[Rfam]
RNA sequence: CAUCCACAACACCUGUUUUUCUUUCGCUUCUUUUUUAUGUCACCGUAAUCGGGGGCUCAUCGUUACGCCAGAAUAAAGCGAAAGACGAACAGAGAGCCUCCCACCUUGCGGAGGCUUUUUUGUA
Dot-bracket structure: ..............((((.((((((((((..((.(..(..(.((......)))(((.....)))..)..).))..)))))))))).))))..(((((((((........)))))))))......
This 124-nucleotide sequence from Photobacterium aphoticum belongs to the Rfam family "Phenylalanine leader peptide". It scores 66 bits against the family's covariance model. Its family is annotated with cellular amino acid metabolic process in the Gene Ontology. For this family Rfam cites "Nucleotide sequence of the leader region of the phenylalanine operon of Escherichia coli" (Zurawski et al., Proc Natl Acad Sci U S A, 1978). The family's RNA type in Rfam is cis-regulatory leader. Taxonomically the source falls in Photobacterium (Bacteria, Pseudomonadati, Vibrionales, Vibrionaceae).